[Rfam]
RNA sequence: UAAGAUUGCGAUGAGGAUACCAAGCUCCCUCUUCUGAAUUAAAGCUGAGGUAAAUUGCUGGCUGAAUCGAACCUAAUUAUAAUCGCCACUACUGAGUAA
Numbered sequence: 001u002a003a004g005a006u007u008g009c010g011a012u013g014a015g016g017a018u019a020c021c022a023a024g025c026u027c028c029c030u031c032u033u034c035u036g037a038a039u040u041a042a043a044g045c046u047g048a049g050g051u052a053a054a055u056u057g058c059u060g061g062c063u064g065a066a067u068c069g070a071a072c073c074u075a076a077u078u079a080u081a082a083u084c085g086c087c088a089c090u091a092c093u094g095a096g097u098a099a
Base pairs, nucleotide, nucleotide: 006099007098008097009096
RNA: Small nucleolar RNA R30/Z108
Organism: Papaver nudicaule